[Rfam]
RNA sequence: GUGCCUUAGGGAUGAACAUGUCCCUCAUAUUCAAUCUAUCCAUUUUAAUCACUUUAUCAGCUUUGCUUUUAAUGCCUUGCUGAUCAUUAUGGAAUGGAAAAUUG
Number, nucleotide and partner (000 for none) at each position: 001g000002u000003g000004c000005c000006u000007u000008a000009g000010g000011g000012a000013u000014g000015a000016a000017c000018a000019u000020g000021u000022c000023c000024c000025u000026c000027a000028u000029a000030u000031u000032c000033a000034a000035u000036c000037u000038a000039u098040c097041c096042a095043u094044u093045u000046u000047a000048a000049u000050c000051a000052c000053u000054u000055u000056a084057u083058c082059a081060g080061c079062u000063u000064u000065g000066c000067u000068u000069u000070u000071a000072a000073u000074g000075c000076c000077u000078u000079g061080c060081u059082g058083a057084u056085c000086a000087u000088u000089a000090u000091g000092g000093a044094a043095u042096g041097g040098a039099a000100a000101a000102u000103u000104g000
RNA: Small nucleolar RNA snoR99